[Rfam]
RNA: mir-7563 microRNA precursor family
RNA sequence: ACCGUGUACUUAUCUACUAUAUAGUAGACAAAAUACAUGUAUAUCAUCUACUAUAUAGUAGGUAAGUAUGCGGUUU
Numbered sequence: 001a002c003c004g005u006g007u008a009c010u011u012a013u014c015u016a017c018u019a020u021a022u023a024g025u026a027g028a029c030a031a032a033a034u035a036c037a038u039g040u041a042u043a044u045c046a047u048c049u050a051c052u053a054u055a056u057a058g059u060a061g062g063u064a065a066g067u068a069u070g071c072g073g074u075u076u
Stems, first nucleotide, its partner, number of pairs: 001074015017058011031044001033042003